This 169-nucleotide sequence belongs to the Rfam family "caulobacter sRNA CC3513". Pairs were carried over by alignment from the consensus structure. By type it is a small RNA. For this family Rfam cites "Small non-coding RNAs in Caulobacter crescentus" (Landt et al., Mol Microbiol, 2008).
[Rfam]
Nucleotides: 169
Base pairs, nucleotide, nucleotide: 002015003014004013005012006011016156017155018154019153021059022058023057024056025055026054027053028052030050031049032048033047034046035045063149064148067141071136072135073134075132078129079128080127081126082125085124087123089121090120091119092118095115096114097113102108
Number, partner (000 for none) and nucleotide at each position: 001000u002015u003014a004013a005012c006011a007000c008000u009000a010000g011006u012005g013004u014003u015002a016156a017155g018154c019153c020000c021059a022058g023057c024056u025055g026054g027053g028052u029000c030050g031049g032048c033047g034046a035045g036000c037000c038000u039000a040000u041000a042000a043000g044000c045035c046034u047033c048032g049031c050030c051000g052028a053027c054026c055025c056024a057023g058022c059021u060000g061000g062000g063149u064148c065000g066000g067141c068000g069000a070000g071136g072135c073134c074000g075132g076000u077000g078129g079128u080127c081126g082125g083000c084000c085124g086000a087123a088000a089121a090120u091119c092118g093000g094000g095115c096114c097113g098000a099000u100000a101000c102108g103000g104000c105000u106000a107000g108102c109000c110000u111000u112000c113097c114096g115095g116000c117000u118092u119091g120090a121089u122000a123087u124085c125082u126081c127080g128079g129078c130000a131000a132075c133000g134073g135072g136071u137000g138000g139000u140000c141067g142000g143000a144000g145000c146000g147000a148064g149063a150000a151000g152000c153019g154018g155017u156016u157000g158000c159000c160000a161000c162000c163000a164000a165000u166000g167000g168000g169000u